[Rfam]
RNA sequence: AUAAGGUUCUUUUAGGUUUGGUCGGCUAGCCCUAGUUUUGAAAAAGGGGGUGAAGCCUUUGAGCAUUUUUGAAGUGUUUAUGAUUAUGUUUGCGUUUGGCACGUUUAUUAUAGGGUUGUUGACGCUUAUUGAAAAAAUGAUCAAUAAAAAAUAGACCUCCCUAUUAACCCUUGGAACAGUUGAUUGGGAGAGGUCUAUUCAGAUUGGAUAGCUGAUCCCCUGGGGGAACGCUUAUCAUUUAGACCACAGUUGCAACUGUGGUCU
Numbered sequence: 001a002u003a004a005g006g007u008u009c010u011u012u013u014a015g016g017u018u019u020g021g022u023c024g025g026c027u028a029g030c031c032c033u034a035g036u037u038u039u040g041a042a043a044a045a046g047g048g049g050g051u052g053a054a055g056c057c058u059u060u061g062a063g064c065a066u067u068u069u070u071g072a073a074g075u076g077u078u079u080a081u082g083a084u085u086a087u088g089u090u091u092g093c094g095u096u097u098g099g100c101a102c103g104u105u106u107a108u109u110a111u112a113g114g115g116u117u118g119u120u121g122a123c124g125c126u127u128a129u130u131g132a133a134a135a136a137a138u139g140a141u142c143a144a145u146a147a148a149a150a151a152u153a154g155a156c157c158u159c160c161c162u163a164u165u166a167a168c169c170c171u172u173g174g175a176a177c178a179g180u181u182g183a184u185u186g187g188g189a190g191a192g193g194u195c196u197a198u199u200c201a202g203a204u205u206g207g208a209u210a211g212c213u214g215a216u217c218c219c220c221u222g223g224g225g226g227a228a229c230g231c232u233u234a235u236c237a238u239u240u241a242g243a244c245c246a247c248a249g250u251u252g253c254a255a256c257u258g259u260g261g262u263c264u
Stems, first nucleotide, its partner, number of pairs: 001235005011228001012215002015169004020161002024156001026154002031050003036046004061127004066122002074089003098120004180202003216227004241264010
Dot-bracket structure: (((((.....(((.((((.((..(.((...(((..((((...)))).)))..........((((.((......(((..........)))........((((...............)))))).)))).........................)).)...))....))))..........(((.................)))...........))((((....)))))..))))).....((((((((((....))))))))))
Shown here is a 264-nucleotide RNA from Virgibacillus phasianinus, a member of the family "BsrG". The organism belongs to Virgibacillus, within Bacteria. For this family Rfam cites "Novel small RNA-encoding genes in the intergenic regions of Bacillus subtilis" (Saito et al., Gene, 2008). It scores 56 bits against the family's covariance model. Rfam classes the family as a small RNA. bsrE, bsrG and bsrH pair through intermolecular interactions with antisense sRNAs. They form type I toxin/antitoxin system that includes an mRNA encoding for a short, toxic peptide (bsrE, bsrG and bsrH) and an antitoxin that is comprised of an antisense RNA. bsrG encodes a 39-amino-acid toxin, and the 180 nucleotide antisense sRNA called SR4 acts as the antitoxin (they overlap by 123 nucleotides). SR4 interaction with the 3'UTR of bsrG RNA promotes bsrG degradation and inhibits its translation.